A member of the RNA family "Small nucleolar RNA SNORD18" from Salix viminalis, 80 nucleotides long. The family is grouped with related families in Rfam's "SNORD18 clan". The organism belongs to Salix, within Eukaryota. The family's RNA type in Rfam is C/D-box small nucleolar RNA. The match comes from Rfam's covariance-model search (48 bits). Rfam links the family to the GO terms nucleolus and RNA processing.
Nucleotides: 080
Base pairs, nucleotide, nucleotide: 001080002079003078004077
Number, partner (000 for none) and nucleotide at each position: 001080g002079a003078g004077a005000u006000a007000u008000g009000a010000u011000g012000a013000a014000a015000u016000g017000a018000a019000a020000c021000c022000u023000c024000u025000g026000g027000u028000c029000c030000g031000u032000g033000u034000u035000u036000c037000u038000g039000a040000u041000u042000u043000a044000a045000c046000c047000g048000u049000g050000a051000c052000c053000g054000a055000u056000a057000u058000g059000u060000u061000u062000u063000u064000u065000a066000c067000c068000a069000a070000u071000u072000u073000c074000u075000g076000a077004u078003c079002u080001c